[Rfam]
RNA sequence: CUACUCCCUCCGUCUCAUAAUGUAAGCUGUUUUUUGACACUAGUGUAGUGUCAAAAAACGGCUUACAUUAUGAGACGGAGGGAGUAG
Dot-bracket structure: ..(((.(((((.(((((.(((((((((((((((((((((((.....))))))))))))))))))))))).))))).))))).)))..

Rfam assigns this 87-nucleotide RNA from Triticum aestivum to the family "MIR1120/MIR1122 microRNA precursor family".
The family's consensus secondary structure was predicted with RNAalifold.
NCBI's taxonomy places the organism under Eukaryota, Streptophytina, commelinids, Triticeae, Triticum.
A reference for the family is Yao et al. (2007), "Cloning and characterization of microRNAs from wheat (Triticum aestivum L.)", Genome Biol.
It scores 99 bits against the family's covariance model.